[Rfam]
RNA sequence: UUCGUUCAUCUAUCUAGACGGAAGUAAGUCUUUAAUUUAAGACUGAAGGAACGCAUU
Numbered sequence: 001u002u003c004g005u006u007c008a009u010c011u012a013u014c015u016a017g018a019c020g021g022a023a024g025u026a027a028g029u030c031u032u033u034a035a036u037u038u039a040a041g042a043c044u045g046a047a048g049g050a051a052c053g054c055a056u057u
Base pairs, nucleotide, nucleotide: 003053004052005051006050007049009018010017011016021054027044028043029042030041031040032039

Rfam assigns this 57-nucleotide RNA to the family "Glutamine riboswitch aptamer (glnA leader)". It is one of the family's seed sequences. Gene Ontology term of the family: glutamine binding.